A member of the RNA family "mir-124 microRNA precursor family" from Haemonchus contortus, 68 nucleotides long.
On this family, see Lai et al., Genome Biol 2003: "Computational identification of Drosophila microRNA genes".
[Rfam]
RNA sequence: AUCGCUUCGCUUUCAUCGGUGACUUUAGUGUGAAAUGCAACUAAGGCACGCGGUGAAUGCCAAGCGAA
Numbered sequence: 001a002u003c004g005c006u007u008c009g010c011u012u013u014c015a016u017c018g019g020u021g022a023c024u025u026u027a028g029u030g031u032g033a034a035a036u037g038c039a040a041c042u043a044a045g046g047c048a049c050g051c052g053g054u055g056a057a058u059g060c061c062a063a064g065c066g067a068a
Stems, first nucleotide, its partner, number of pairs: 003066004009060002012057005019051003023046007